[Rfam]
Source information:
L31-Actinobacteria ribosomal protein leader: a 46-nucleotide RNA sequence from Gordonia humi. It scores 57 bits against the family's covariance model.

RNA sequence: CCGGUUCCGGUUCACACCGCGCACCACGCUCGGUGACCCGGCGACC
Number, nucleotide and partner (000 for none) at each position: 001c000002c000003g046004g045005u044006u000007c041008c040009g039010g038011u000012u000013c000014a000015c035016a034017c033018c032019g031020c000021g029022c028023a000024c000025c000026a000027c000028g022029c021030u000031c019032g018033g017034u016035g015036a000037c000038c010039c009040g008041g007042c000043g000044a005045c004046c003